[Rfam]
Rfam assigns this 110-nucleotide RNA from Devosia sp. Root685 to the family "Guanidine-I riboswitch aptamer". The match comes from Rfam's covariance-model search (86 bits). This family represents a conserved RNA structure found upstream of the ykkC and yxkD genes in Bacillus subtilis and related genes in other bacteria. Lineage of the source: Bacteria > Pseudomonadati > Hyphomicrobiales > Devosiaceae > Devosia.
RNA sequence: UGAGUUAGCGGCUAGGGUUCCGGCAUCGCGGUGAUGCGUCUGGUCCGAGAGCUGCUACCGGACCGGGAGACAUCCGGCCGGGUGCACGGCGGGACAAAAGCCCGGGAGAC
Dot-bracket structure: ......((((((..((...(((((((((...))))))..).)).))....))))))(((.(.((((.......)))).).))).(.[...(((.......))).)..]..